[Rfam]
RNA sequence: UUCCCCGUUUGCCUGCCACCUUUCUCCCAGUAGAUUUUCGUGGCUGUGCUGAGGGGAUAGAGUAACAUCGCCGUGAUCUGCAGGGGGGGAUUUGUCUGUGUCCUCCUAUAUGAAAUGGCUAAACAGAAAAAG
Numbered sequence: 001u002u003c004c005c006c007g008u009u010u011g012c013c014u015g016c017c018a019c020c021u022u023u024c025u026c027c028c029a030g031u032a033g034a035u036u037u038u039c040g041u042g043g044c045u046g047u048g049c050u051g052a053g054g055g056g057a058u059a060g061a062g063u064a065a066c067a068u069c070g071c072c073g074u075g076a077u078c079u080g081c082a083g084g085g086g087g088g089g090a091u092u093u094g095u096c097u098g099u100g101u102c103c104u105c106c107u108a109u110a111u112g113a114a115a116u117g118g119c120u121a122a123a124c125a126g127a128a129a130a131a132g
Stems, first nucleotide, its partner, number of pairs: 004056003016043004070119004087107004

The record is a 132-nucleotide sequence from Myotis davidii, which matches "Small nucleolar RNA SNORA29" in Rfam. ACA29 is a member of the H/ACA class of snoRNA that guide the sites of modification of uridines to pseudouridines. A search with the family's covariance model found it, with a score of 101 bits. The family has 26 seed sequences and 960 matches in Rfam 15.1. By type it is an H/ACA-box small nucleolar RNA. The base pairs follow the family's consensus structure, which was predicted with PFOLD.